The record is a 149-nucleotide RNA from Alteromonadaceae bacterium 2753L.S.0a.02, which matches "Molybdenum/Tungsten riboswitch aptamer (Moco RNA motif)" in Rfam. The source organism's lineage runs through Bacteria, Pseudomonadati, Pseudomonadota, Alteromonadales and Alteromonadaceae.
[Rfam]
RNA sequence: GCGUUUAUAAACCGCCGAAGCCCAGCUUACCUAAAACCCCUCACUGGUCAUGGUAAUUGGGCCGCAGCAUCAUUUGUUAGAUUGCUGCCGGGUUGGUGCGGAAACUCAUCAGCCUCCCGAAUUUGGAAAGGCAUACCAUGACCGAAACG
Number, nucleotide and partner (000 for none) at each position: 001g000002c000003g143004u000005u000006u140007a000008u000009a000010a000011a000012c000013c000014g132015c131016c130017g000018a000019a000020g062021c061022c060023c059024a058025g057026c000027u056028u055029a054030c053031c052032u000033a000034a000035a000036a048037c047038c046039c000040c000041u000042c000043a000044c000045u000046g038047g037048u036049c000050a000051u000052g031053g030054u029055a028056a027057u025058u024059g023060g022061g021062c020063c000064g088065c087066a086067g085068c084069a000070u000071c000072a000073u000074u000075u000076g000077u000078u000079a000080g000081a000082u000083u000084g068085c067086u066087g065088c064089c000090g115091g114092g113093u112094u111095g110096g109097u108098g107099c000100g105101g000102a000103a000104a000105c100106u000107c098108a097109u096110c095111a094112g093113c092114c091115u090116c126117c125118c000119g000120a000121a000122u000123u000124u000125g117126g116127a000128a000129a000130g016131g015132c014133a000134u000135a000136c000137c000138a000139u000140g006141a000142c000143c003144g000145a000146a000147a000148c000149g000